This 121-nucleotide sequence from Pelotomaculum schinkii belongs to the Rfam family "Molybdenum/Tungsten riboswitch aptamer (Moco RNA motif)". On this family, see Regulski et al., Mol Microbiol 2008: "in molybdenum cofactor and tungsten cofactor metabolism". The family's consensus secondary structure is taken from published work. The source organism's lineage runs through Bacteria, Bacillota, Clostridia, Desulfotomaculaceae and Pelotomaculum. It scores 48 bits against the family's covariance model.

RNA sequence: UCUGAAAUGAAUCUCCGAGCUGGCUUUGCCUAAAGCGUCACAGCUAGGGCUGACGGUCGUUUGGGUGCGCUGGAAAACUAUUGCGCCUUCCAUUGCGAAAAGGAGAACUGGGAUGGCCUUG
Numbered sequence: 001u002c003u004g005a006a007a008u009g010a011a012u013c014u015c016c017g018a019g020c021u022g023g024c025u026u027u028g029c030c031u032a033a034a035g036c037g038u039c040a041c042a043g044c045u046a047g048g049g050c051u052g053a054c055g056g057u058c059g060u061u062u063g064g065g066u067g068c069g070c071u072g073g074a075a076a077a078c079u080a081u082u083g084c085g086c087c088u089u090c091c092a093u094u095g096c097g098a099a100a101a102g103g104a105g106a107a108c109u110g111g112g113a114u115g116g117c118c119u120u121g
Stems, first nucleotide, its partner, number of pairs: 003115002012106005019057004024052001028050003034045003063088007071080003089098002
Dot-bracket structure: ..((.......(((((..((((.(...(((...(((......)))..))).).)))).....(((((((.(((....))).)))))))((......))...))))).......))......